[Rfam]
RNA sequence: UACCGGCGUUUGAUCGCGCCGCGGGUCUGAUAGCCGGCUUGUCCCCCGCCCGCGUCAGGCUUGGACAAAGGCCUCAUCCCCCUCUCCGGGCCUUUGUCCUCAUUUUCAAGCCGCCAUGGCCUUCCUCCAGGCCGUGGCGGUUUUGU
Numbered sequence: 001u002a003c004c005g006g007c008g009u010u011u012g013a014u015c016g017c018g019c020c021g022c023g024g025g026u027c028u029g030a031u032a033g034c035c036g037g038c039u040u041g042u043c044c045c046c047c048g049c050c051c052g053c054g055u056c057a058g059g060c061u062u063g064g065a066c067a068a069a070g071g072c073c074u075c076a077u078c079c080c081c082c083u084c085u086c087c088g089g090g091c092c093u094u095u096g097u098c099c100u101c102a103u104u105u106u107c108a109a110g111c112c113g114c115c116a117u118g119g120c121c122u123u124c125c126u127c128c129a130g131g132c133c134g135u136g137g138c139g140g141u142u143u144u145g146u
Base pairs, nucleotide, nucleotide: 026059027058028057029056030055031054036050037049038048063099064098065097066096067095068094069093070092071091072090073089108142111140112139113138114137115136116135117134118133119132120131121130
RNA: Alphaproteobacterial sRNA ar7